[Rfam]
RNA sequence: UAUCUUUGCGCCUCGAUUGAAAAUCAAUCAGAUACAUAAAAAUCAUUAAAUAAAAUAUUGGCAUG
Numbered sequence: 001u002a003u004c005u006u007u008g009c010g011c012c013u014c015g016a017u018u019g020a021a022a023a024u025c026a027a028u029c030a031g032a033u034a035c036a037u038a039a040a041a042a043u044c045a046u047u048a049a050a051u052a053a054a055a056u057a058u059u060g061g062c063a064u065g
Stems, first nucleotide, its partner, number of pairs: 015029005
RNA: S15-Flavobacteria ribosomal protein leader